[Rfam]
Overview
Alphaproteobacterial ar15: a 136-nucleotide RNA from Pleomorphomonas diazotrophica. The family has 61 seed sequences and 316 matches in Rfam 15.1. The family's RNA type in Rfam is small RNA. A search with the family's covariance model found it, with a score of 42 bits. The source organism's lineage runs through Bacteria, Pseudomonadati, Alphaproteobacteria, Hyphomicrobiales and Pleomorphomonas. Its Rfam clan is "suhB sRNA clan". The pairing is the family consensus, mapped onto this sequence.
Nucleotides: 136
Stems, first nucleotide, its partner, number of pairs: 001053005008046001020043004063099005107131001109129008
Number, partner (000 for none) and nucleotide at each position: 001053a002052g003051c004050u005049g006000a007000u008046g009000u010000g011000u012000u013000g014000g015000u016000u017000c018000c019000c020043u021042c022041g023040c024000c025000a026000u027000c028000c029000u030000c031000c032000c033000g034000g035000c036000g037000a038000a039000a040023g041022c042021g043020a044000a045000u046008c047000u048000u049005c050004a051003g052002c053001u054000g055000u056000u057000c058000c059000c060000c061000u062000c063099u064098g065097g066096a067095a068000g069000g070000u071000g072000c073000g074000g075000u076000a077000u078000c079000g080000u081000c082000c083000c084000u085000g086000c087000g088000a089000u090000c091000c092000g093000c094000a095067u096066u097065c098064c099063a100000a101000a102000a103000c104000u105000u106000a107131a108000u109129a110128g111127c112126c113125g114124g115123g116122c117000u118000u119000c120000g121000u122116g123115c124114c125113c126112g127111g128110c129109u130000u131107u132000u133000u134000u135000u136000u